[Rfam]
Notes
This 56-nucleotide sequence from Streptomyces scabiei belongs to the Rfam family "L17-Actino-Proteobacteria ribosomal protein leader". The base pairs follow the family's consensus structure, which is taken from published work. Lineage of the source: Bacteria > Bacillati > Actinomycetes > Streptomycetaceae > Streptomyces. On this family, see Eckert and Weinberg, BMC Microbiol 2020: "Discovery of 20 novel ribosomal leader candidates in bacteria and archaea". Rfam's curators put it in the seed alignment.
RNA sequence: CGACGGGCAUCCGCCCGCUCGGAUACUGACCUCGGUACCUGAUACGGCCGGGGCAG
Numbered sequence: 001c002g003a004c005g006g007g008c009a010u011c012c013g014c015c016c017g018c019u020c021g022g023a024u025a026c027u028g029a030c031c032u033c034g035g036u037a038c039c040u041g042a043u044a045c046g047g048c049c050g051g052g053g054c055a056g
Base pairs, nucleotide, nucleotide: 001021002020003019004017005016006015007014008013026056027055028054030053031052032051033050034049035048036047